[Rfam]
RNA sequence: GAAUGUGAGGGUGAUCUGGCUGUGACAUCUGUCACCCCAUUAAUCGCUAGGGUUGAUUCGACUGAUCUGGCUGGCUAAGUGGCUGUCCCCUUCCUCCCUCACCACUCCGUGUUCGUGCUUCUCAAAGCUGUGUUCUCGAAGAGGACAACCAUCUCCGCUACAAGAGAACCAGUCUUUGGUCAAGGUAUACGAGUAGCUGCGCUUCCCUGCUGGAACCUCCAGACAAGCUCUCAAGUCCAUUUGUAGGAGAACAUAGGGUAGUCAAGCUUCCAAGAUUCCAGACACAUCCAAAUGAGGUGCUGCAUGUGGCAGUCUGCCUUUCUUU
Dot-bracket structure: (.(.(((((((.((...((....((((.((((..(((((...((((.(...........).).))).)))..))....)))).)))).)).))..)))))))...).).......(.(((......(.......).((....(((......))).))....)))..)............................(((...((.(((((.......((((..(((((............))))).))))....))))).))...)))......................(((.((((((((((.....)))))..)))))..)))
Numbered sequence: 001g002a003a004u005g006u007g008a009g010g011g012u013g014a015u016c017u018g019g020c021u022g023u024g025a026c027a028u029c030u031g032u033c034a035c036c037c038c039a040u041u042a043a044u045c046g047c048u049a050g051g052g053u054u055g056a057u058u059c060g061a062c063u064g065a066u067c068u069g070g071c072u073g074g075c076u077a078a079g080u081g082g083c084u085g086u087c088c089c090c091u092u093c094c095u096c097c098c099u100c101a102c103c104a105c106u107c108c109g110u111g112u113u114c115g116u117g118c119u120u121c122u123c124a125a126a127g128c129u130g131u132g133u134u135c136u137c138g139a140a141g142a143g144g145a146c147a148a149c150c151a152u153c154u155c156c157g158c159u160a161c162a163a164g165a166g167a168a169c170c171a172g173u174c175u176u177u178g179g180u181c182a183a184g185g186u187a188u189a190c191g192a193g194u195a196g197c198u199g200c201g202c203u204u205c206c207c208u209g210c211u212g213g214a215a216c217c218u219c220c221a222g223a224c225a226a227g228c229u230c231u232c233a234a235g236u237c238c239a240u241u242u243g244u245a246g247g248a249g250a251a252c253a254u255a256g257g258g259u260a261g262u263c264a265a266g267c268u269u270c271c272a273a274g275a276u277u278c279c280a281g282a283c284a285c286a287u288c289c290a291a292a293u294g295a296g297g298u299g300c301u302g303c304a305u306g307u308g309g310c311a312g313u314c315u316g317c318c319u320u321u322c323u324u325u
Stems, first nucleotide, its partner, number of pairs: 001108001003106001005102007013093002018090002024087004029082004035074002037070003043066003046062001048060001116167001118164003127135001137157002143154003196267003202261002205258005217249004223244005290325003294320005299313005
7SK RNA: a 325-nucleotide RNA from Piliocolobus tephrosceles. 7SK was discovered as an abundant small nuclear RNA in the mid-70s but a possible function has only recently been suggested. Two independent studies have found that 7SK RNA binds the CDK9/cyclin T complex (known as elongation factor P-TEFb). P-TEFb activates transcription by phosphorylating the C-terminal domain of RNA polymerase II. This process is negatively regulated by the 7SK RNP. The secondary structure of 7SK RNA shown here was proposed by Wasserman and Steitz on the basis of chemical modification and enzymatic cleavage experiments. This family contains a number of annotated pseudogenes and 7SK derived repeats. Taxonomically the source falls in Piliocolobus (Eukaryota, Craniata, Teleostomi, Tetrapoda). The family has 45 seed sequences and 49,373 matches in Rfam 15.1. Rfam classes the family as a non-coding RNA gene. Pairs were carried over by alignment from the consensus structure, which is taken from published work.